Overview
This 72-nucleotide sequence from Apolygus lucorum belongs to the Rfam family "mir-965 microRNA precursor family". The source organism's lineage runs through Eukaryota, Opisthokonta, Prosorrhyncha, Cimicoidea and Apolygus.
RNA sequence: GGUGUGAGGGGAGAGGUUGUAUAGCUUAUGUGUUUGUUUUAAUCAUAAGCGUAUAGCUUUUCCCCUUUCAAC
Numbered sequence: 001g002g003u004g005u006g007a008g009g010g011g012a013g014a015g016g017u018u019g020u021a022u023a024g025c026u027u028a029u030g031u032g033u034u035u036g037u038u039u040u041a042a043u044c045a046u047a048a049g050c051g052u053a054u055a056g057c058u059u060u061u062c063c064c065c066u067u068u069c070a071a072c
Base pairs, nucleotide, nucleotide: 003070004069006067007066009064010063011062013060014059017056018055019054020053021052025049026048027047028046029045030044